[Rfam]
RNA sequence: AGACUCCCAGCUCUGCCAGUUACACUAGGCUUCACUGGUGUUGCUUUUGUAACAGGGAGGGAGAGAAAGGAUCUCCCCAGGACCUCGGAUUGUUCUUACUGUGGCCUCUCUUUCCAGGCUCGGAUGGGU
Numbered sequence: 001a002g003a004c005u006c007c008c009a010g011c012u013c014u015g016c017c018a019g020u021u022a023c024a025c026u027a028g029g030c031u032u033c034a035c036u037g038g039u040g041u042u043g044c045u046u047u048u049g050u051a052a053c054a055g056g057g058a059g060g061g062a063g064a065g066a067a068a069g070g071a072u073c074u075c076c077c078c079a080g081g082a083c084c085u086c087g088g089a090u091u092g093u094u095c096u097u098a099c100u101g102u103g104g105c106c107u108c109u110c111u112u113u114c115c116a117g118g119c120u121c122g123g124a125u126g127g128g129u
Base pairs, nucleotide, nucleotide: 004063005062006061007060008059011057012056013055014054015053018045019044020043022041023040024039025038073126076123077122079120080119081115087111088110089109092106094104095103